[Rfam]
Source information: c-di-AMP riboswitch aptamer (ydaO/yuaA leader): a 158-nucleotide RNA from Streptomyces sp. NWU49. Taxonomically the source falls in Streptomyces (Bacteria, Bacillati, Actinomycetota, Kitasatosporales).
RNA sequence: AGUCCGGCACCGCCCCCGCGGCGGCCGGAGCCGGGGACCCAACCGAGACCUUGGGGUGAAUCGGCCCACUCCCUCGCGGAGCGGCCGUAGGGCAACCCUUCCGAAGCACCCGCCCGAACCCGACAGCUAACCCGGUAGGCGGAGCACUGGAAGGAGUC
Dot-bracket structure: ..((((((...............))))))((((((....((..........))(((.....((((..................))))..((((..................))))...))).........))))))......................

Rfam links the family to the GO terms cyclic-di-AMP binding and regulation of gene expression.
A search with the family's covariance model found it, with a score of 57 bits.